The record is an 84-nucleotide sequence from Silurus meridionalis, which matches "mir-130 microRNA precursor family" in Rfam. NCBI's taxonomy places the organism under Eukaryota, Eumetazoa, Ostariophysi, Siluridae, Silurus. The match comes from Rfam's covariance-model search (49 bits). Rfam 15.1 lists 2,580 matches to the family in 658 species.
[Rfam]
RNA sequence: UUCUACCUCUACCCCUUACUAACCUUCUACUGCUACCUCUACCUCUUACUAGCAGUAGAAGGUUAGUAUGGGGUAGAGGUAGAA
Numbered sequence: 001u002u003c004u005a006c007c008u009c010u011a012c013c014c015c016u017u018a019c020u021a022a023c024c025u026u027c028u029a030c031u032g033c034u035a036c037c038u039c040u041a042c043c044u045c046u047u048a049c050u051a052g053c054a055g056u057a058g059a060a061g062g063u064u065a066g067u068a069u070g071g072g073g074u075a076g077a078g079g080u081a082g083a084a
Base pairs, nucleotide, nucleotide: 001084002083003082006079007078008077009076010075011074013072014071015070017068018067019066020065023062024061025060026059027058028057029056030055031054